[Rfam]
Shown here is a 53-nucleotide RNA sequence, a member of the family "L31-Gammaproteobacteria ribosomal protein leader".
A reference for the family is Eckert and Weinberg (2020), "Discovery of 20 novel ribosomal leader candidates in bacteria and archaea", BMC Microbiol.
The family's consensus secondary structure is taken from published work.
It is one of the family's seed sequences.
RNA sequence: CGUGUGGUGCCCGGCUUAGGAUCGGGAGAGCGACACGGCCUUCAAGAUGAGGU
Numbered sequence: 001c002g003u004g005u006g007g008u009g010c011c012c013g014g015c016u017u018a019g020g021a022u023c024g025g026g027a028g029a030g031c032g033a034c035a036c037g038g039c040c041u042u043c044a045a046g047a048u049g050a051g052g053u
Stems, first nucleotide, its partner, number of pairs: 001037005007031002010026005015020001